The family of this 84-nucleotide RNA from Branchiostoma belcheri is "mir-4889 microRNA precursor family". The family's consensus secondary structure was predicted with RNAalifold.

[Rfam]
RNA sequence: AGAGCUUUUUAAUCUUCCUAGCGCCACGGGUCGAUUGUAAAGUCUACAUCUAAUCGGCCCUGACGCUUGGAAUAUUAAAGGGCU
Numbered sequence: 001a002g003a004g005c006u007u008u009u010u011a012a013u014c015u016u017c018c019u020a021g022c023g024c025c026a027c028g029g030g031u032c033g034a035u036u037g038u039a040a041a042g043u044c045u046a047c048a049u050c051u052a053a054u055c056g057g058c059c060c061u062g063a064c065g066c067u068u069g070g071a072a073u074a075u076u077a078a079a080g081g082g083c084u
Stems, first nucleotide, its partner, number of pairs: 003084002006081008015072004020067004025062002028060010